[Rfam]
Rfam assigns this 112-nucleotide sequence from Dioscorea zingiberensis to the family "MIR394 microRNA precursor family". Rfam links the family to the GO terms RISC complex and miRNA-mediated post-transcriptional gene silencing. A search with the family's covariance model found it, with a score of 68 bits.

RNA sequence: CUCACAGAGGUUACUGGCAUUCUGUCCCACCUCCAUAUAUAAGACUCAUUCAUUAAUGGAGUAGUAGUAGACAUUAAUGGAGGUGGGCAUCCUGCCAAGGGAUCUCUGUUGG
Number, nucleotide and partner (000 for none) at each position: 001c000002u000003c000004a000005c000006a000007g000008a000009g000010g000011u102012u000013a000014c000015u097016g096017g095018c094019a093020u000021u000022c000023u089024g088025u087026c000027c086028c085029a084030c083031c082032u081033c080034c079035a000036u000037a000038u000039a000040u000041a000042a000043g000044a000045c000046u000047c000048a000049u000050u000051c000052a000053u000054u000055a000056a000057u000058g000059g000060a000061g000062u000063a000064g000065u000066a000067g000068u000069a000070g000071a000072c000073a000074u000075u000076a000077a000078u000079g034080g033081a032082g031083g030084u029085g028086g027087g025088c024089a023090u000091c000092c000093u019094g018095c017096c016097a015098a000099g000100g000101g000102a011103u000104c000105u000106c000107u000108g000109u000110u000111g000112g000
Lineage of the source: Eukaryota > Streptophytina > Spermatophyta > Dioscoreaceae > Dioscorea. For this family Rfam cites "Computational identification of plant microRNAs and their targets, including a stress-induced miRNA" (Jones-Rhoades and Bartel, Mol Cell, 2004).